[Rfam]
Background: Shown here is a 139-nucleotide RNA from Amazona guildingii, a member of the family "Small nucleolar RNA SNORA5". The base pairs follow the family's consensus structure, which was predicted with RNAfold. Rfam describes the family as follows. ACA5 is a member of the H/ACA class of snoRNA that guide the sites of modification of uridines to pseudouridines. The family's RNA type in Rfam is H/ACA-box small nucleolar RNA. The family is grouped with related families in Rfam's "SNORA5 clan". Lineage of the source: Eukaryota > Bilateria > Aves > Psittacidae > Amazona.

RNA sequence: UGCAGCCCUGUCAAAUUCGAUCCCUGCCUCCUCCGUGGUGGGGACCGGCCAGCCGGCUGCCACAGCAACUUCUGUGGUCAAUGAGCCCCAUGUUCCCUUCCCAUGGGACACUGGGAACAAAGUCACACCACAGACACUG
Numbered sequence: 001u002g003c004a005g006c007c008c009u010g011u012c013a014a015a016u017u018c019g020a021u022c023c024c025u026g027c028c029u030c031c032u033c034c035g036u037g038g039u040g041g042g043g044a045c046c047g048g049c050c051a052g053c054c055g056g057c058u059g060c061c062a063c064a065g066c067a068a069c070u071u072c073u074g075u076g077g078u079c080a081a082u083g084a085g086c087c088c089c090a091u092g093u094u095c096c097c098u099u100c101c102c103a104u105g106g107g108a109c110a111c112u113g114g115g116a117a118c119a120a121a122g123u124c125a126c127a128c129c130a131c132a133g134a135c136a137c138u139g
Base pairs, nucleotide, nucleotide: 002060003059004058005057018047019046021044022043023042024041025040026039027038028037074131075130076129077128078127086115087114088113091110092109